RNA sequence: GCGAAACAUCAAGAGCAGUUGCUACGCAGCAUUGAUUUGCUGAUGGUGGCAAACUCACCAACCGAGUUUACAGGAACCACGGUGGUUAAGGUACGAUGUGGAAGUUUUCUAUAUUCAUCACUUCAAACAUUUCCUGAUAU
Numbered sequence: 001g002c003g004a005a006a007c008a009u010c011a012a013g014a015g016c017a018g019u020u021g022c023u024a025c026g027c028a029g030c031a032u033u034g035a036u037u038u039g040c041u042g043a044u045g046g047u048g049g050c051a052a053a054c055u056c057a058c059c060a061a062c063c064g065a066g067u068u069u070a071c072a073g074g075a076a077c078c079a080c081g082g083u084g085g086u087u088a089a090g091g092u093a094c095g096a097u098g099u100g101g102a103a104g105u106u107u108u109c110u111a112u113a114u115u116c117a118u119c120a121c122u123u124c125a126a127a128c129a130u131u132u133c134c135u136g137a138u139a140u
Base pairs, nucleotide, nucleotide: 006099007098008097009096010095015056017055018054019053020052057086058085059084062082063081064080066077067076069136070135073132101124102123103122104121

This 140-nucleotide RNA sequence from Prevotella sp. CAG:5226 belongs to the Rfam family "SAM-I/IV (S-adenosyl methionine) riboswitch aptamer". Gene Ontology terms of the family: S-adenosylmethionine metabolic process and regulation of gene expression.